[Rfam]
RNA: RT-12 RNA
Organism: Pseudomonas aeruginosa
RNA sequence: UAGCAAUCGCGGCGAAAUCGGAACUGGGUGACUGAGACCGAUUGGAUAAUGUGAGGAACAUUUGGGUUUAUCCGGCCAGGCGGCUUGAGGAUUGCCGCCAUCCUAAGCCUGGCCGGUUGGCUCGA
Numbered sequence: 001u002a003g004c005a006a007u008c009g010c011g012g013c014g015a016a017a018u019c020g021g022a023a024c025u026g027g028g029u030g031a032c033u034g035a036g037a038c039c040g041a042u043u044g045g046a047u048a049a050u051g052u053g054a055g056g057a058a059c060a061u062u063u064g065g066g067u068u069u070a071u072c073c074g075g076c077c078a079g080g081c082g083g084c085u086u087g088a089g090g091a092u093u094g095c096c097g098c099c100a101u102c103c104u105a106a107g108c109c110u111g112g113c114c115g116g117u118u119g120g121c122u123c124g125a
Stems, first nucleotide, its partner, number of pairs: 009098005016043006049061004062125007072116010088104005